RNA: c-di-AMP riboswitch aptamer (ydaO/yuaA leader)
Organism: Phytohabitans suffuscus
RNA sequence: ACGACGAUCACACUCCGUCAGCGAAUCGGGGACCCACCUGUGUUCUGGGGUGAAUCCGCAGCCGCCACCCCGGUGGCGGUCCGGUAGGGCGAUCUUCCCGCCCGAAUCCGUCAGCUAACCCGGUAGGCGGCGUUGGGGAAGAAG
Numbered sequence: 001a002c003g004a005c006g007a008u009c010a011c012a013c014u015c016c017g018u019c020a021g022c023g024a025a026u027c028g029g030g031g032a033c034c035c036a037c038c039u040g041u042g043u044u045c046u047g048g049g050g051u052g053a054a055u056c057c058g059c060a061g062c063c064g065c066c067a068c069c070c071c072g073g074u075g076g077c078g079g080u081c082c083g084g085u086a087g088g089g090c091g092a093u094c095u096u097c098c099c100g101c102c103c104g105a106a107u108c109c110g111u112c113a114g115c116u117a118a119c120c121c122g123g124u125a126g127g128c129g130g131c132g133u134u135g136g137g138g139a140a141g142a143a144g
Stems, first nucleotide, its partner, number of pairs: 002023002025124006035047002048109003056084003087103004